Notes
Shown here is a 48-nucleotide sequence, a member of the family "Plastid-rpl16 group II-D1 intron". For this family Rfam cites "Retrograde signaling in plants: A critical review focusing on the GUN pathway and beyond" (Richter et al., Plant Commun, 2023). Its family is annotated with Group II intron splicing in the Gene Ontology. Plastid-rpl16 is a non-coding RNA (ncRNA) recognised in plastids. It was recognised in and intronic region of a ribosome rpl16 gene. The family's consensus secondary structure was predicted with LocARNA.
RNA sequence: AAGAGCCCUGAGCCAAUAAAGAUUAAGAAAAUUGACUCAAGAACAAAU
Numbered sequence: 001a002a003g004a005g006c007c008c009u010g011a012g013c014c015a016a017u018a019a020a021g022a023u024u025a026a027g028a029a030a031a032u033u034g035a036c037u038c039a040a041g042a043a044c045a046a047a048u
Base pairs, nucleotide, nucleotide: 007041010038011037012036014034015033016032017031